[Rfam]
RNA sequence: ACAGUACAAACUGAACAGGCGAUGACAGCAGGUCAUUUGCCGGGCCAUGAUGGCAGCAGAUGGAAAGCAUCUGCGGGACGGUU
Numbered sequence: 001a002c003a004g005u006a007c008a009a010a011c012u013g014a015a016c017a018g019g020c021g022a023u024g025a026c027a028g029c030a031g032g033u034c035a036u037u038u039g040c041c042g043g044g045c046c047a048u049g050a051u052g053g054c055a056g057c058a059g060a061u062g063g064a065a066a067g068c069a070u071c072u073g074c075g076g077g078a079c080g081g082u083u
Base pairs, nucleotide, nucleotide: 010082011081012080013079016077018041019040020039021038022036023035024034025033026032044054045053046052047051056074057073058072059071060070061069
This 83-nucleotide RNA from Oscillibacter sp. CAG:155 belongs to the Rfam family "NiCo (Nickel/Cobalt) riboswitch aptamer". Its Rfam clan is "NiCo_riboswitches". Its family is annotated with cobalt ion binding and metal ion homeostasis in the Gene Ontology. The family's consensus secondary structure is taken from published work. The literature on the family includes a 2015 paper in Mol Cell by Furukawa et al., "Bacterial riboswitches cooperatively bind Ni(2+) or Co(2+) ions and control expression of heavy metal transporters".